Source information:
The family of this 88-nucleotide RNA from Drosophila ananassae is "mir-7 microRNA precursor family". The base pairs follow the family's consensus structure, which was predicted with PFOLD. The literature on the family includes a 2001 paper in Science by Lagos-Quintana et al., "Identification of novel genes coding for small expressed RNAs". Rfam's curators write: This family represents the microRNA (miRNA) precursor mir-7. The family has 132 seed sequences and 2,589 matches in Rfam 15.1. A search with the family's covariance model found it, with a score of 68 bits. The organism belongs to ananassae species complex, within Eukaryota.
RNA sequence: AAGUGCAUUCCGUAUGGAAGACUAGUGAUUUUGUUGUUUGGUUUAUGGUAAUAACAAUAAAUCCCUUGUCUUCUUACGGCGUGCAUUC
Dot-bracket structure: .(((((((.(((((.((.((((..(.(((((.((((((..............))))))))))).)..)))))).))))).))))))).